[Rfam]
RNA sequence: AUCGAUCCCCAUCCCAGCUUCCUUCCAGCCCUUGAUGUUUUAGUACGCACAUAGGCUAGAGAGAGGUUGGGGAUGGGGAAAGAU
Numbered sequence: 001a002u003c004g005a006u007c008c009c010c011a012u013c014c015c016a017g018c019u020u021c022c023u024u025c026c027a028g029c030c031c032u033u034g035a036u037g038u039u040u041u042a043g044u045a046c047g048c049a050c051a052u053a054g055g056c057u058a059g060a061g062a063g064a065g066g067u068u069g070g071g072g073a074u075g076g077g078g079a080a081a082g083a084u
Base pairs, nucleotide, nucleotide: 001084002083003082006079007078008077009076010075011074012073013072014071015070016068017067018066019065020064021063023061024060025059027057028056029055030054033051034050036049037048038047
The family of this 84-nucleotide sequence from Mus musculus is "mir-3099 microRNA precursor family". Gene Ontology terms of the family: miRNA-mediated post-transcriptional gene silencing and RISC complex.